[Rfam]
RNA: chrB-a RNA
Organism: Sphingomonas lycopersici
RNA sequence: GACAUGGGGGUUGCGAUCUCCCCACGAGGCGACAGGCUGAAGCAUCGCGUCCUGCUUUUGCGAAAGGGCGCGUUAUG
Numbered sequence: 001g002a003c004a005u006g007g008g009g010g011u012u013g014c015g016a017u018c019u020c021c022c023c024a025c026g027a028g029g030c031g032a033c034a035g036g037c038u039g040a041a042g043c044a045u046c047g048c049g050u051c052c053u054g055c056u057u058u059u060g061c062g063a064a065a066g067g068g069c070g071c072g073u074u075a076u077g
Stems, first nucleotide, its partner, number of pairs: 005024006047071006